Record summary:
A member of the RNA family "Bacterial large subunit ribosomal RNA" from Mediterranea sp. An20, 387 nucleotides of a longer RNA. The organism belongs to Mediterranea, within Bacteria. Pairs were carried over by alignment from the consensus structure, which is taken from published work.
RNA sequence: GAUAAGGCAGGCGCGAAACCUGCCCGCCGAAAGACUAAGGUUUCCUGAUCAACGCUAAUCGGAUCAGGGUAAGUCGGGUCCUAAGGCACAGCCGAAUGGCGUAGCCGAUGGCAGAACCGGUUAAUAUUCCGGUACUGCCUGCAUGAGCGACGUGGUGACGGAGUCGUGACAGCGCCGCGGGCUGACGGAAUAGCCCGUUUAAGGGUGUAGGAGUCGAGGAGGCCAGGCAAAUCCGGUCUCCGAUCCGAACCUGAAAGUAUGCCAAUCCUUCCGGGGAGCGGCAAUAGCGCGCGUAAGCAUACUCCCGAGAAAACCCGCUAAGCAUAUCAUGCAGGCACCCGUACCGCAAACGGACACACGUAGUCGGGUUGAAUAUACUAAGGCGCU
Numbered sequence: 001g002a003u004a005a006g007g008c009a010g011g012c013g014c015g016a017a018a019c020c021u022g023c024c025c026g027c028c029g030a031a032a033g034a035c036u037a038a039g040g041u042u043u044c045c046u047g048a049u050c051a052a053c054g055c056u057a058a059u060c061g062g063a064u065c066a067g068g069g070u071a072a073g074u075c076g077g078g079u080c081c082u083a084a085g086g087c088a089c090a091g092c093c094g095a096a097u098g099g100c101g102u103a104g105c106c107g108a109u110g111g112c113a114g115a116a117c118c119g120g121u122u123a124a125u126a127u128u129c130c131g132g133u134a135c136u137g138c139c140u141g142c143a144u145g146a147g148c149g150a151c152g153u154g155g156u157g158a159c160g161g162a163g164u165c166g167u168g169a170c171a172g173c174g175c176c177g178c179g180g181g182c183u184g185a186c187g188g189a190a191u192a193g194c195c196c197g198u199u200u201a202a203g204g205g206u207g208u209a210g211g212a213g214u215c216g217a218g219g220a221g222g223c224c225a226g227g228c229a230a231a232u233c234c235g236g237u238c239u240c241c242g243a244u245c246c247g248a249a250c251c252u253g254a255a256a257g258u259a260u261g262c263c264a265a266u267c268c269u270u271c272c273g274g275g276g277a278g279c280g281g282c283a284a285u286a287g288c289g290c291g292c293g294u295a296a297g298c299a300u301a302c303u304c305c306c307g308a309g310a311a312a313a314c315c316c317g318c319u320a321a322g323c324a325u326a327u328c329a330u331g332c333a334g335g336c337a338c339c340c341g342u343a344c345c346g347c348a349a350a351c352g353g354a355c356a357c358a359c360g361u362a363g364u365c366g367g368g369u370u371g372a373a374u375a376u377a378c379u380a381a382g383g384c385g386c387u
Base pairs, nucleotide, nucleotide: 006024007023008022009021010020011019025385026384027383028382033365034364035363036362039345040344044068045067046066047065048064049063053061054060075341076340077339078338080111081110085106086105087104091100092099093098116133117132118131119130120129136337137336138335139334140333141332142331143330144329145328146327147323148322152318153317154316155315160305161304162303163302166298167297172292173291174290175289177198178197179196180195181194182193199257200256203252204251205250206249210246211245212244218241219240220239221238222237223236224235226234227233259285260284263281351360352359367379368378369377
Dot-bracket structure: .....((((((.......))))))((((....((((..((...((((((...((.....)).))))))......((((.((...(((...(((....)))...)))...))....(((((........)))))..(((((((((((((...((((....((((..((....((((.((((((..........))))))((..((((...(((.....(((((((.((.....)))))))))..)))..))))...)).((..(.................)..))...))))....))...)))).........))))...))...)))))))))))))))..)).....((......)).)))).(((.......)))..))))..